About this RNA:
eL15-Euryarchaeota ribosomal protein leader: a 70-nucleotide RNA sequence from Haloprofundus sp. MHR1. For this family Rfam cites "Discovery of 20 novel ribosomal leader candidates in bacteria and archaea" (Eckert and Weinberg, BMC Microbiol, 2020). The organism belongs to Haloprofundus, within Archaea. By type it is a cis-regulatory leader.

RNA sequence: CCCGCCGCACGGCGGACGGGACGAAAUGUGGCUUCCGGGGCCUCGCGCCCUCGAACGGCUGAAUCGCAAG
Numbered sequence: 001c002c003c004g005c006c007g008c009a010c011g012g013c014g015g016a017c018g019g020g021a022c023g024a025a026a027u028g029u030g031g032c033u034u035c036c037g038g039g040g041c042c043u044c045g046c047g048c049c050c051u052c053g054a055a056c057g058g059c060u061g062a063a064u065c066g067c068a069a070g
Base pairs, nucleotide, nucleotide: 001020002019003018004017022066023065024064030060031059032058033057

A search with the family's covariance model found it, with a score of 34 bits.